[Rfam]
This 91-nucleotide RNA from Occultella aeris belongs to the Rfam family "Glycine riboswitch aptamer".
RNA sequence: CGAACCGCGGCGGGAGAGUCCCGCACCAGCGGGCGCCGAAGGAGCAACCUCCCCGGGAAACUCUCAGGCCCCUUGGACCGCCAGCGGCGAG
Number, nucleotide and partner (000 for none) at each position: 001c000002g000003a000004a000005c000006c086007g085008c084009g082010g081011c080012g079013g078014g000015a000016g000017a000018g000019u000020c033021c032022c031023g030024c000025a000026c000027c000028a000029g000030c023031g022032g021033g020034c000035g069036c068037c067038g065039a064040a000041g000042g063043a062044g061045c000046a000047a000048c056049c055050u000051c000052c000053c000054c000055g049056g048057g000058a000059a000060a000061c044062u043063c042064u039065c038066a000067g037068g036069c035070c000071c000072c000073u000074u000075g000076g000077a000078c013079c012080g011081c010082c009083a000084g008085c007086g006087g000088c000089g000090a000091g000
The match comes from Rfam's covariance-model search (59 bits). Taxonomically the source falls in Occultella (Bacteria, Bacillati, Actinomycetota, Ruaniaceae).